[Rfam]
RNA: Bacterial RNase P class A
RNA sequence: AAAGUUUGUCAGACAAUCGCUGGCGGUGAGAACCGCGAGAGGAAAGUCCGGGCUCCACAGGGCAGGGUGCUGGAUAACGUCCAGUCAGCGCGAGUUGAAGGAUAGUGCCACAGAAAUGGACCGCCGAUGGCCGUUUAUACGGAUCAGGCAAGGAUGGAACCGAGGUGUAAGAGACCCCGAGGAACGCUGGUGACUUCGUUCCUGGUAAACCCCACCUGGAGCAAGACCUAAUGGAACGCAGCUUCUUUCGAGGAAGCAGCCUUAGCCCGAGGCGCGUUCGGGUUGGUCGCUGGAGCCGUUCAGUAAUGACCGGCCUAGAUAGAUGAUUGUCGCUUAUGGUGGCAGGGUAGUUCCCGUUAUGACCACGAAGAGCACAGAACCCGGCUUAUGAAAAACUUUUCUA
Numbered sequence: 001a002a003a004g005u006u007u008g009u010c011a012g013a014c015a016a017u018c019g020c021u022g023g024c025g026g027u028g029a030g031a032a033c034c035g036c037g038a039g040a041g042g043a044a045a046g047u048c049c050g051g052g053c054u055c056c057a058c059a060g061g062g063c064a065g066g067g068u069g070c071u072g073g074a075u076a077a078c079g080u081c082c083a084g085u086c087a088g089c090g091c092g093a094g095u096u097g098a099a100g101g102a103u104a105g106u107g108c109c110a111c112a113g114a115a116a117u118g119g120a121c122c123g124c125c126g127a128u129g130g131c132c133g134u135u136u137a138u139a140c141g142g143a144u145c146a147g148g149c150a151a152g153g154a155u156g157g158a159a160c161c162g163a164g165g166u167g168u169a170a171g172a173g174a175c176c177c178c179g180a181g182g183a184a185c186g187c188u189g190g191u192g193a194c195u196u197c198g199u200u201c202c203u204g205g206u207a208a209a210c211c212c213c214a215c216c217u218g219g220a221g222c223a224a225g226a227c228c229u230a231a232u233g234g235a236a237c238g239c240a241g242c243u244u245c246u247u248u249c250g251a252g253g254a255a256g257c258a259g260c261c262u263u264a265g266c267c268c269g270a271g272g273c274g275c276g277u278u279c280g281g282g283u284u285g286g287u288c289g290c291u292g293g294a295g296c297c298g299u300u301c302a303g304u305a306a307u308g309a310c311c312g313g314c315c316u317a318g319a320u321a322g323a324u325g326a327u328u329g330u331c332g333c334u335u336a337u338g339g340u341g342g343c344a345g346g347g348u349a350g351u352u353c354c355c356g357u358u359a360u361g362a363c364c365a366c367g368a369a370g371a372g373c374a375c376a377g378a379a380c381c382c383g384g385c386u387u388a389u390g391a392a393a394a395a396c397u398u399u400u401c402u403a
Stems, first nucleotide, its partner, number of pairs: 001399007009391003012331007020039002023036005044387003048384005053221004060268004065217005070084005085099001086097004100212002105210002107206003121153002123149003129144001131142004161179002164176003181202006189194001225288004234279006259273005295314004300309003